[Rfam]
RNA sequence: GGGUCCGAGAAAAAUUCUCGGAGGGUUGUUUGAUGGUCGGGCCGCCAUCU
Numbered sequence: 001g002g003g004u005c006c007g008a009g010a011a012a013a014a015u016u017c018u019c020g021g022a023g024g025g026u027u028g029u030u031u032g033a034u035g036g037u038c039g040g041g042c043c044g045c046c047a048u049c050u
Base pairs, nucleotide, nucleotide: 005021006020007019008018009017010016032049033048034047035046036045037044
This 50-nucleotide RNA belongs to the Rfam family "nhaA-I RNA".
The family's RNA type in Rfam is riboswitch.
About the family: Acidobacteria, Alphaproteobacteria, Betaproteobacteria and Gammaproteobacteria, Verrucomicrobia, cand. division NC10.
The sequence is in the family's curated seed alignment.